RNA sequence: CGCUCCUUUCAGCCUCUCUAUGGUGCUGCCUUGUGUCAAACCUGCGUGUCAAGCAGCAUCGUACAGGGCUUGGAAAGUGUCG
Numbered sequence: 001c002g003c004u005c006c007u008u009u010c011a012g013c014c015u016c017u018c019u020a021u022g023g024u025g026c027u028g029c030c031u032u033g034u035g036u037c038a039a040a041c042c043u044g045c046g047u048g049u050c051a052a053g054c055a056g057c058a059u060c061g062u063a064c065a066g067g068g069c070u071u072g073g074a075a076a077g078u079g080u081c082g
Stems, first nucleotide, its partner, number of pairs: 014068004019063010030053004